[Rfam]
RNA sequence: GCCCGAACGGGAAUGGUUGUAUCGCUUGUGCUUUUCCCAGUGCCAUAAGCGUAUAGCUUUUCCCCUUUGGUU
Numbered sequence: 001g002c003c004c005g006a007a008c009g010g011g012a013a014u015g016g017u018u019g020u021a022u023c024g025c026u027u028g029u030g031c032u033u034u035u036c037c038c039a040g041u042g043c044c045a046u047a048a049g050c051g052u053a054u055a056g057c058u059u060u061u062c063c064c065c066u067u068u069g070g071u072u
Stems, first nucleotide, its partner, number of pairs: 003070005009064003013060001017056005025049006